[Rfam]
Nucleotides: 278
Stems, first nucleotide, its partner, number of pairs: 006031003012026002036049001087130004095122001096120002100116005137156002141153001144151002162205003165201003212254005218248002222240002225237001227235001263278002266275002
Number, partner (000 for none) and nucleotide at each position: 001000u002000g003000g004000u005000g006031c007030c008029c009000a010000a011000u012026g013025u014000g015000g016000g017000g018000c019000u020000c021000g022000a023000g024000a025013a026012u027000g028000g029008g030007g031006g032000a033000c034000u035000u036049c037000a038000u039000g040000a041000g042000g043000a044000a045000c046000u047000c048000u049036g050000u051000u052000c053000a054000u055000a056000g057000g058000c059000c060000c061000a062000a063000a064000g065000u066000a067000g068000a069000a070000a071000a072000a073000a074000g075000g076000a077000a078000a079000a080000g081000a082000a083000a084000a085000u086000a087130g088129a089128g090127g091000a092000c093000c094000u095122g096120a097119u098000g099000a100116u101115g102114u103113g104112g105000g106000a107000g108000c109000c110000u111000g112104c113103u114102a115101c116100a117000c118000u119097g120096u121000g122095c123000u124000g125000a126000a127090c128089c129088u130087c131000g132000g133000u134000a135000a136000g137156u138155g139000a140000a141153c142000a143000g144151c145150g146000a147000u148000u149000a150145u151144g152000g153141g154000a155138c156137a157000a158000g159000a160000a161000a162205u163204g164203a165201g166200c167199c168000a169000g170000c171000a172000u173000g174000a175000g176000a177000u178000u179000u180000u181000u182000g183000u184000u185000g186000a187000a188000a189000g190000u191000u192000u193000a194000g195000g196000a197000a198000a199167g200166g201165c202000u203164u204163u205162a206000a207000a208000g209000g210000u211000g212254u213253g214252a215251g216250g217000a218248g219247u220000a221000a222240a223239g224000a225237u226000u227235a228000a229000a230000a231000u232000u233000a234000a235227u236000c237225a238000a239223u240222u241000g242000u243000g244000u245000c246000a247219a248218u249000a250216u251215u252214u253213u254212g255000a256000u257000u258000u259000u260000a261000u262000g263278a264277a265000a266275g267274a268000a269000g270000u271000u272000u273000g274267u275266c276000g277264u278263u
The family of this 278-nucleotide RNA from Cavia porcellus is "Mason-Pfizer monkey virus packaging signal".
The literature on the family includes a 2004 paper in Virus Res by Mustafa et al., "Mutational analysis of the predicted secondary RNA structure of the Mason-Pfizer monkey virus packaging signal".
About the family: This family represents a group of sequences that are related to the Mason-Pfizer monkey virus (MPMV) packaging signal. The packaging signal is located in the 5' UTR and is required for specific RNA encapsidation.
The source organism's lineage runs through Eukaryota, Bilateria, Deuterostomia, Glires and Cavia.
The base pairs follow the family's consensus structure, which was predicted with PFOLD.
It scores 114 bits against the family's covariance model.